[Rfam]
RNA sequence: CUCUGUUCCAGAUGGUUCAGGGCGAGACGGAG
Numbered sequence: 001c002u003c004u005g006u007u008c009c010a011g012a013u014g015g016u017u018c019a020g021g022g023c024g025a026g027a028c029g030g031a032g
Base pairs, nucleotide, nucleotide: 001022002021003020004019005018008015009014

A member of the RNA family "L31-Firmicutes ribosomal protein leader", 32 nucleotides long. Its Rfam clan is "Ribosomal Protein L31 Leader clan". Pairs were carried over by alignment from the consensus structure, which is taken from published work. The sequence is in the family's curated seed alignment. For this family Rfam cites "Discovery of 20 novel ribosomal leader candidates in bacteria and archaea" (Eckert and Weinberg, BMC Microbiol, 2020).